Mammalian CPEB3 ribozyme: a 74-nucleotide RNA sequence from Eptatretus burgeri. Gene Ontology term of the family: RNA nuclease activity. The organism belongs to Eptatretus, within Eukaryota. Rfam's curators write: The mammalian CPEB3 ribozyme is a self cleaving RNA located in the second intron of the CPEB3 gene which belongs to a family of genes regulating messenger RNA polyadenylation.

RNA sequence: GCUGUGACAAAGGGGGCCACAGAAGGAGCAUUAACAUUGUGGUCCCUGUCAGGCUUUUGCCUGUGAAUACUUCC
Numbered sequence: 001g002c003u004g005u006g007a008c009a010a011a012g013g014g015g016g017c018c019a020c021a022g023a024a025g026g027a028g029c030a031u032u033a034a035c036a037u038u039g040u041g042g043u044c045c046c047u048g049u050c051a052g053g054c055u056u057u058u059g060c061c062u063g064u065g066a067a068u069a070c071u072u073c074c
Base pairs, nucleotide, nucleotide: 013046014045015044016043017042018041022073023072024071025070027068028040029039030038050063051062052061053060054059